[Rfam]
Nucleotides: 127
Base pairs, nucleotide, nucleotide: 001078002077003076004075009040012038013037014036015035016034017033022031023030041065042064043063046061047060048059050057051056081116082115083114084113085112086111087110088109
Number, partner (000 for none) and nucleotide at each position: 001078c002077u003076u004075c005000a006000a007000g008000a009040a010000u011000u012038g013037u014036g015035g016034c017033c018000g019000c020000c021000a022031a023030g024000c025000u026000c027000c028000g029000a030023c031022u032000u033017g034016g035015u036014c037013a038012c039000a040009u041065a042064c043063c044000a045000a046061c047060c048059c049000c050057g051056c052000g053000c054000u055000c056051g057050u058000a059048g060047g061046g062000u063043g064042g065041u066000u067000c068000g069000g070000a071000u072000g073000a074000g075004g076003a077002a078001g079000u080000g081116g082115c083114c084113u085112g086111u087110a088109u089000u090000c091000g092000c093000u094000c095000u096000a097000a098000g099000u100000g101000a102000g103000c104000a105000c106000c107000c108000g109088g110087u111086g112085c113084a114083g115082g116081c117000a118000a119000g120000a121000g122000c123000u124000c125000g126000c127000g
The family of this 127-nucleotide RNA from Arthrobacter sp. NamB2 is "SAM (S-adenosyl methionine) riboswitch aptamer".
Taxonomically the source falls in Arthrobacter (Bacteria, Actinomycetota, Actinomycetes, Micrococcales).
Clan: SAM clan.
On this family, see Weinberg et al., RNA 2008: "The aptamer core of SAM-IV riboswitches mimics the ligand-binding site of SAM-I riboswitches".
Pairs were carried over by alignment from the consensus structure, which is taken from published work.
SAM-IV is a mRNA element that regulates gene expression via direct sensing of S-adenosylmethionine (SAM or AdoMet).